[Rfam]
RNA sequence: GUCGGUCUUCGGUAGUGGCCUUUCGACACGAUGCGAUGCGUCGUUGGGCUUCGAUCGAUGACCGCC
Numbered sequence: 001g002u003c004g005g006u007c008u009u010c011g012g013u014a015g016u017g018g019c020c021u022u023u024c025g026a027c028a029c030g031a032u033g034c035g036a037u038g039c040g041u042c043g044u045u046g047g048g049c050u051u052c053g054a055u056c057g058a059u060g061a062c063c064g065c066c
Stems, first nucleotide, its partner, number of pairs: 001066001003064005009058005017050005024043004029038001
RNA: Actino-pnp RNA
Organism: Nocardia stercoris